[Rfam]
RNA sequence: GGCGGUCAUGCGCCGGAGUAAUCCAGAGCAACCAUCGGGUUGCAGGCCUUUGGCAAUCAUGGACCGGGGGGCCGCCCACUC
Numbered sequence: 001g002g003c004g005g006u007c008a009u010g011c012g013c014c015g016g017a018g019u020a021a022u023c024c025a026g027a028g029c030a031a032c033c034a035u036c037g038g039g040u041u042g043c044a045g046g047c048c049u050u051u052g053g054c055a056a057u058c059a060u061g062g063a064c065c066g067g068g069g070g071g072c073c074g075c076c077c078a079c080u081c
Base pairs, nucleotide, nucleotide: 001076002075003074004073005072006071007070011068013067014066015065016064022063023062024061025060028043029042030041031040032039033038046054047053048052
Dot-bracket structure: (((((((...(.((((.....((((..((((((....))))))..(((...))).....))))))))).))))))).....